[Rfam]
RNA: Small nucleolar RNA SNORD30
RNA sequence: CUGUAUGAUGACUUACAUGGAAUCUCGUUCGGCUGAUUCUUGCUGUUGAGACUUGGAAAUCUGAUUUUC
Number, nucleotide and partner (000 for none) at each position: 001c000002u000003g000004u000005a000006u000007g000008a000009u000010g000011a000012c000013u000014u000015a000016c000017a000018u000019g000020g000021a000022a000023u051024c050025u049026c048027g047028u000029u000030c045031g044032g043033c042034u000035g000036a000037u000038u000039c000040u000041u000042g033043c032044u031045g030046u000047u027048g026049a025050g024051a023052c000053u000054u000055g000056g000057a000058a000059a000060u000061c000062u000063g000064a000065u000066u000067u000068u000069c000